A member of the RNA family "Acido-Lenti-1 RNA" from Lacipirellula limnantheis, 46 nucleotides long.
Rfam 15.1 lists 2,607 matches to the family in 171 species.
Rfam classes the family as a small RNA.
A search with the family's covariance model found it, with a score of 42 bits.
Lineage of the source: Bacteria > Pseudomonadati > Pirellulales > Lacipirellulaceae > Lacipirellula.
RNA sequence: CCCAGCGAUGAAUCGCUGGGUUACUAUAGGGCGUCCCGCUGGGACG
Numbered sequence: 001c002c003c004a005g006c007g008a009u010g011a012a013u014c015g016c017u018g019g020g021u022u023a024c025u026a027u028a029g030g031g032c033g034u035c036c037c038g039c040u041g042g043g044a045c046g
Stems, first nucleotide, its partner, number of pairs: 001020008033045005